[Rfam]
RNA: Small nucleolar RNA U3
RNA sequence: AAGACUAUACUUUCAGGGAUCAUUUCUGUAGUUGGUCACUAGAGGAGAGUGAUCUUCCCUGAUCGGCGUCACAAGCCACGAGGAGGAGCGAGGUGUUCUCUCCUGAGCGCGAAGCGGGUGUUCGGUGCUGCUUGUGCAGGAGCUGUUCACCAUUGAUGACCGUUCCCAGUACUCUUGAUGAAGACUUGGGAGGGAGAGAACACGGGCUGAGUGGU
Numbered sequence: 001a002a003g004a005c006u007a008u009a010c011u012u013u014c015a016g017g018g019a020u021c022a023u024u025u026c027u028g029u030a031g032u033u034g035g036u037c038a039c040u041a042g043a044g045g046a047g048a049g050u051g052a053u054c055u056u057c058c059c060u061g062a063u064c065g066g067c068g069u070c071a072c073a074a075g076c077c078a079c080g081a082g083g084a085g086g087a088g089c090g091a092g093g094u095g096u097u098c099u100c101u102c103c104u105g106a107g108c109g110c111g112a113a114g115c116g117g118g119u120g121u122u123c124g125g126u127g128c129u130g131c132u133u134g135u136g137c138a139g140g141a142g143c144u145g146u147u148c149a150c151c152a153u154u155g156a157u158g159a160c161c162g163u164u165c166c167c168a169g170u171a172c173u174c175u176u177g178a179u180g181a182a183g184a185c186u187u188g189g190g191a192g193g194g195a196g197a198g199a200a201c202a203c204g205g206g207c208u209g210a211g212u213g214g215u
Base pairs, nucleotide, nucleotide: 002040003039006035009032010031011030014028015027016026017025018024051063053062054061075215076214077213078212079211093203094202095201096200097199098198099197100196101195102194103193104192107163108162109161117151118150119149120148123145124144125143126142128139129138130137131136166189167188168186169185170184173181174180